[Rfam]
This 73-nucleotide RNA sequence belongs to the Rfam family "RAGATH-18 RNA". The sequence is in the family's curated seed alignment.
RNA sequence: ACUGUGGAGUGUACAAGAACUUGUGAGUAGUGUGUUACUUUUAACCACCAAAGCAUACACGUUGAAACAGUAA
Numbered sequence: 001a002c003u004g005u006g007g008a009g010u011g012u013a014c015a016a017g018a019a020c021u022u023g024u025g026a027g028u029a030g031u032g033u034g035u036u037a038c039u040u041u042u043a044a045c046c047a048c049c050a051a052a053g054c055a056u057a058c059a060c061g062u063u064g065a066a067a068c069a070g071u072a073a
Stems, first nucleotide, its partner, number of pairs: 001071005009060005022055003030048003034045002